[Rfam]
RNA: Selenocysteine insertion sequence 1
Organism: Phascolarctos cinereus
Nucleotides: 064
Stems, first nucleotide, its partner, number of pairs: 002063004015050010029039003
Number, partner (000 for none) and nucleotide at each position: 001000u002063u003062u004061g005060c006000a007000u008000c009000a010000a011000u012000g013000a014000a015050g016049a017048c018047a019046g020045a021044a022043g023042c024041c025000g026000a027000a028000a029039c030038u031037a032000u033000g034000a035000c036000c037031u038030a039029g040000g041024g042023g043022c044021u045020u046019c047018u048017g049016u050015u051000g052000g053000a054000c055000c056000a057000u058000u059000u060005g061004c062003a063002a064000u